[Rfam]
RNA: Mammalian CPEB3 ribozyme
RNA sequence: GUUGGCCUCAUGAGGGCCAUAGCAGAAGCAUUCAUGUUGUGACCCCUGUCAGGUAACACCUGGUAAUACCUGUGAAUUCUGCU
Number, nucleotide and partner (000 for none) at each position: 001g000002u000003u000004g000005g000006c000007c000008u000009c000010a000011u000012g000013a000014g045015g044016g043017c000018c041019a000020u000021a083022g082023c081024a080025g079026a078027a077028g040029c039030a038031u000032u000033c000034a000035u000036g000037u000038u030039g029040u028041g018042a000043c016044c015045c014046c000047u000048g000049u000050c072051a071052g070053g069054u068055a067056a000057c000058a000059c000060c000061u000062g000063g000064u000065a000066a000067u055068a054069c053070c052071u051072g050073u000074g000075a000076a000077u027078u026079c025080u024081g023082c022083u021